[Rfam]
RNA sequence: CCUGGGGCUACGCCCCAGGCUGGUAUGAGGCGGGCCUUUGGCCCU
Numbered sequence: 001c002c003u004g005g006g007g008c009u010a011c012g013c014c015c016c017a018g019g020c021u022g023g024u025a026u027g028a029g030g031c032g033g034g035c036c037u038u039u040g041g042c043c044c045u
Base pairs, nucleotide, nucleotide: 001019002018003017004016005015006014007013008012032044033043034042035041036040